[Rfam]
RNA sequence: AGUUAUAUUUUGCUGAAUUUCCAAAAGGAAAACGGGGGAACCAACGUUGGGGUGCAUUGUUUUGCUUUAUUAAAACAUAGGGUAGUUUCUAUCCGAACCCGUCAGCUAACCUCGUAAGCGUAUGAAACAAAUUUA
Numbered sequence: 001a002g003u004u005a006u007a008u009u010u011u012g013c014u015g016a017a018u019u020u021c022c023a024a025a026a027g028g029a030a031a032a033c034g035g036g037g038g039a040a041c042c043a044a045c046g047u048u049g050g051g052g053u054g055c056a057u058u059g060u061u062u063u064g065c066u067u068u069a070u071u072a073a074a075a076c077a078u079a080g081g082g083u084a085g086u087u088u089c090u091a092u093c094c095g096a097a098c099c100c101g102u103c104a105g106c107u108a109a110c111c112u113c114g115u116a117a118g119c120g121u122a123u124g125a126a127a128c129a130a131a132u133u134u135a
Stems, first nucleotide, its partner, number of pairs: 011120004018031003032115006042049002050100003058077006080094004